A member of the RNA family "Nuclear RNase P" from Anopheles gambiae, 335 nucleotides long.
[Rfam]
RNA sequence: GCUAGUGGUAAUCUCGCACUUGGAGCACCCGUACGAGUACCUGGUUACUCUGGUUGUUUGCUUCGGGAAGGUCUGAGAUAAGGCAUGCGAAUAUGCCUCAGCAAGGCAGCUCUUUGAGAAGAGCGUUCGCUACCAGCAAUACAUCAGUUGUGGAUGACGCAGUGUCCUGGCCGCUUCUUGAAAGGUGCAAACCUCUCGGUUUCGGCUCGGGCACUGAUUGAAAACAGCGGAUUGCCAGCCAUAUGAGUCAAAUAUGCGAGCUAUCAACCUGUGGGGGGGGGGGUCCGUCCUCCCCAUGGGCGGUAGAACUCAAUUCAGACUAAUCUAUCACUAGC
Dot-bracket structure: ((((...(((..((((((...(((((........((((((...).))))).........)))))........[[[[[....((((........(((((.....)))))((((((....))))))(((((((............(((((................................................................)))))........)))))))))))..................))))))(((((....................................))))).......]]]]].......)))...))))
Its Rfam clan is "RNaseP clan". Rfam classes the family as a ribozyme.